[Rfam]
RNA sequence: GGGCAGUGAUUGGAAAUGUCAUGCACCACUCUUACGAGAUGAUCCUCCCGUAUGAUGAUAAUGACUCAUACCCAUAUGAUUUCUGAGCCC
Numbered sequence: 001g002g003g004c005a006g007u008g009a010u011u012g013g014a015a016a017u018g019u020c021a022u023g024c025a026c027c028a029c030u031c032u033u034a035c036g037a038g039a040u041g042a043u044c045c046u047c048c049c050g051u052a053u054g055a056u057g058a059u060a061a062u063g064a065c066u067c068a069u070a071c072c073c074a075u076a077u078g079a080u081u082u083c084u085g086a087g088c089c090c
Stems, first nucleotide, its partner, number of pairs: 001090004
The record is a 90-nucleotide RNA sequence, which matches "Small nucleolar RNA Z221/R21b" in Rfam. By type it is a C/D-box small nucleolar RNA. Pairs were carried over by alignment from the consensus structure, which was predicted with WAR. A search with the family's covariance model found it, with a score of 49 bits. The family has 12 seed sequences and 588 matches in Rfam 15.1. The literature on the family includes a 2003 paper in Nucleic Acids Res by Chen et al., "The high diversity of snoRNAs in plants: identification and comparative study of 120 snoRNA genes from Oryza sativa". Its family is annotated with nucleolus and RNA processing in the Gene Ontology.